The record is a 254-nucleotide RNA from Streptomyces candidus, which matches "Streptomyces sRNA 4677" in Rfam.
The family has 12 seed sequences and 563 matches in Rfam 15.1.
It is annotated as a small RNA.
For this family Rfam cites "Complex intra-operonic dynamics mediated by a small RNA in Streptomyces coelicolor" (Hindra et al., PLoS One, 2014).
[Rfam]
RNA sequence: CGCUCCCCGUGGACGUAAAACACCUUCAAUACUCGGGGAACCAGAACCUCACCCAACCCCACCAGCCUCCCGGCGGGACCGCCGCGCGGCUCGUCACCCACAUGGGUGGUCUCUGCCAACUCGGGUGGAUUCGCGAAGGGUUGGCGGGCAUAUGCUCGCCCCGACAACCACAACUCCAGACAUACGUCGGCCCCCGGCCGGGACUGCGAAUCCCGAUCGAGGGCCUGACCAACGAGGAAGAAAGCCGCUUCCCG
Numbered sequence: 001c002g003c004u005c006c007c008c009g010u011g012g013a014c015g016u017a018a019a020a021c022a023c024c025u026u027c028a029a030u031a032c033u034c035g036g037g038g039a040a041c042c043a044g045a046a047c048c049u050c051a052c053c054c055a056a057c058c059c060c061a062c063c064a065g066c067c068u069c070c071c072g073g074c075g076g077g078a079c080c081g082c083c084g085c086g087c088g089g090c091u092c093g094u095c096a097c098c099c100a101c102a103u104g105g106g107u108g109g110u111c112u113c114u115g116c117c118a119a120c121u122c123g124g125g126u127g128g129a130u131u132c133g134c135g136a137a138g139g140g141u142u143g144g145c146g147g148g149c150a151u152a153u154g155c156u157c158g159c160c161c162c163g164a165c166a167a168c169c170a171c172a173a174c175u176c177c178a179g180a181c182a183u184a185c186g187u188c189g190g191c192c193c194c195c196g197g198c199c200g201g202g203a204c205u206g207c208g209a210a211u212c213c214c215g216a217u218c219g220a221g222g223g224c225c226u227g228a229c230c231a232a233c234g235a236g237g238a239a240g241a242a243a244g245c246c247g248c249u250u251c252c253c254g
Stems, first nucleotide, its partner, number of pairs: 012074001014072002094109006124160005189225005195219002200214004236252005
Dot-bracket structure: ...........(.((.......................................................)).)...................((((((....))))))..............(((((...........................)))))............................(((((.((...((((.......))))...)).)))))..........(((((.......)))))..